[Rfam]
RNA sequence: GUGCAUUCUUUAAAAAAACCCCACAAGCUGCCUGUCGCUUUGUGGGACAAGAAAGAAUGCGAGAGAAAAACCAAGAACUAUCCAAAGCUAAAUGUCUUUGCAGUGACUUUUGGCUAUUUCACCUCUUGAACAUUG
Numbered sequence: 001g002u003g004c005a006u007u008c009u010u011u012a013a014a015a016a017a018a019c020c021c022c023a024c025a026a027g028c029u030g031c032c033u034g035u036c037g038c039u040u041u042g043u044g045g046g047a048c049a050a051g052a053a054a055g056a057a058u059g060c061g062a063g064a065g066a067a068a069a070a071c072c073a074a075g076a077a078c079u080a081u082c083c084a085a086a087g088c089u090a091a092a093u094g095u096c097u098u099u100g101c102a103g104u105g106a107c108u109u110u111u112g113g114c115u116a117u118u119u120c121a122c123c124u125c126u127u128g129a130a131c132a133u134u135g
Stems, first nucleotide, its partner, number of pairs: 003060004009052003020046005026039003065134002072128005086115007094107002098103001
A member of the RNA family "Small nucleolar RNA SNORA14" from Anabarilius grahami, 135 nucleotides long. ACA14 is a member of the H/ACA class of snoRNA that guide the sites of modification of uridines to pseudouridines. NCBI's taxonomy places the organism under Eukaryota, Metazoa, Actinopterygii, Xenocyprididae, Anabarilius. Rfam links the family to the GO terms RNA processing and nucleolus. The family's consensus secondary structure was predicted with RNAfold. It scores 56 bits against the family's covariance model. The family's RNA type in Rfam is H/ACA-box small nucleolar RNA.